[Rfam]
RNA: Ribosomal protein L10 leader
RNA sequence: AGAAUUCCGAUGAAUUAGCCGGAGACAGCAGGCGCGUUGCGUAAAGAAAUUAUUUUCUGCCUGCCGAGGAUUAUAAAUGUUUGCUUAGUUAUUGAGUAGAACGUAUAGCCCUCCUGCAUUUUUCGGGAGGGCUUUUAAUUUACUUCG
Numbered sequence: 001a002g003a004a005u006u007c008c009g010a011u012g013a014a015u016u017a018g019c020c021g022g023a024g025a026c027a028g029c030a031g032g033c034g035c036g037u038u039g040c041g042u043a044a045a046g047a048a049a050u051u052a053u054u055u056u057c058u059g060c061c062u063g064c065c066g067a068g069g070a071u072u073a074u075a076a077a078u079g080u081u082u083g084c085u086u087a088g089u090u091a092u093u094g095a096g097u098a099g100a101a102c103g104u105a106u107a108g109c110c111c112u113c114c115u116g117c118a119u120u121u122u123u124c125g126g127g128a129g130g131g132c133u134u135u136u137a138a139u140u141u142a143c144u145u146c147g
Base pairs, nucleotide, nucleotide: 028064029063030062031061032060033059034040035039108132109131110130111129112128113127114126115125116124